[Rfam]
RNA sequence: AAGAUUAGCUAGGGGGGCCAAUUUGGCUGAGAGGUAUCUACCGACCCUUAUACCUGAUCUGGGUAAUGCCAGCGUAGGAAAGCUUAUAGGGAUAAAU
Numbered sequence: 001a002a003g004a005u006u007a008g009c010u011a012g013g014g015g016g017g018c019c020a021a022u023u024u025g026g027c028u029g030a031g032a033g034g035u036a037u038c039u040a041c042c043g044a045c046c047c048u049u050a051u052a053c054c055u056g057a058u059c060u061g062g063g064u065a066a067u068g069c070c071a072g073c074g075u076a077g078g079a080a081a082g083c084u085u086a087u088a089g090g091g092a093u094a095a096a097u
Base pairs, nucleotide, nucleotide: 007084008083009082010081011048012047013046014045016042017027018026019025020024034041035040053078054077055076056075059072060071061070062069

The record is a 97-nucleotide sequence from Romboutsia weinsteinii, which matches "TPP riboswitch aptamer (THI element)" in Rfam. Gene Ontology term of the family: thiamine pyrophosphate binding. The organism belongs to Romboutsia, within Bacteria. Rfam describes the family as follows. Vitamin B(1) in its active form thiamin pyrophosphate (TPP) is an essential coenzyme that is synthesised by coupling of pyrimidine and thiazole moieties in bacteria. The previously detected thiamin-regulatory element, thi box was extended, resulting in a new, highly conserved RNA secondary structure, the THI element, which is widely distributed in eubacteria and also occurs in some archaea. Analysis of operon structures identified a large number of new candidate thiamin-regulated genes, mostly transporters, in various prokaryotic organisms.